The record is a 320-nucleotide sequence from Campylobacter sp. MIT 12-5580, which matches "Bacterial RNase P class A" in Rfam. The match comes from Rfam's covariance-model search (259 bits).

Nucleotides: 320
Base pairs, nucleotide, nucleotide: 001316002315003314004313005312006311007310008309009308010307011305012285013284014283015282016281017280018279020032021031022030023029024028037303038302039301041300042299043298044297045296046205047204048203049202059201060200061199062198063197064078065077066076067075068074079093080091081090082089083088094196095195099194100193101190102189103188116135117134118131119130120129121128143161144160145159146158147157148156163185164183165182166181167180170177171176209242210241211240212239213238214237249268250267251266252265253264254263255262256261
Number, partner (000 for none) and nucleotide at each position: 001316a002315a003314a004313g005312c006311a007310u008309a009308g010307u011305a012285a013284a014283u015282g016281c017280u018279c019000g020032c021031u022030u023029u024028u025000a026000c027000a028024a029023a030022a031021a032020g033000a034000g035000g036000a037303a038302a039301g040000u041300c042299c043298g044297a045296g046205c047204u048203g049202c050000a051000a052000a053000a054000g055000a056000c057000a058000a059201a060200c061199a062198u063197u064078g065077u066076a067075u068074c069000u070000a071000a072000c073000a074068g075067a076066u077065a078064c079093c080091a081090g082089c083088a084000g085000u086000a087000a088083u089082g090081c091080u092000a093079g094196g095195g096000a097000a098000a099194g100193u101190g102189c103188a104000a105000c106000a107000g108000a109000a110000a111000g112000c113000a114000a115000a116135c117134u118131a119130c120129c121128a122000u123000g124000a125000a126000u127000u128121u129120g130119g131118u132000a133000a134117a135116g136000g137000u138000g139000a140000a141000a142000c143161g144160g145159u146158g147157g148156g149000g150000u151000a152000a153000g154000a155000g156148c157147c158146c159145a160144c161143c162000a163185g164183c165182g166181a167180a168000u169000u170177u171176g172000g173000u174000g175000a176171c177170a178000u179000u180167u181166u182165c183164g184000g185163c186000u187000u188103u189102g190101u191000a192000a193100a194099c195095c196094c197063a198062a199061u200060g201059u202049g203048c204047a205046g206000c207000a208000a209242g210241a211240a212239g213238g214237g215000a216000u217000g218000g219000u220000u221000a222000g223000a224000g225000u226000c227000u228000u229000u230000g231000a232000g233000a234000a235000a236000a237214c238213c239212c240211u241210u242209c243000g244000c245000u246000u247000g248000a249268u250267u251266u252265u253264g254263u255262u256261u257000g258000u259000g260000a261256a262255a263254a264253c265252a266251a267250a268249a269000c270000c271000a272000g273000a274000u275000a276000a277000a278000u279018g280017a281016g282015c283014a284013u285012u286000c287000a288000c289000g290000a291000c292000a293000g294000a295000a296045c297044u298043c299042g300041g301039c302038u303037u304000a305011u306000c307010g308009c309008u310007a311006u312005g313004c314003u315002u316001u317000g318000a319000u320000u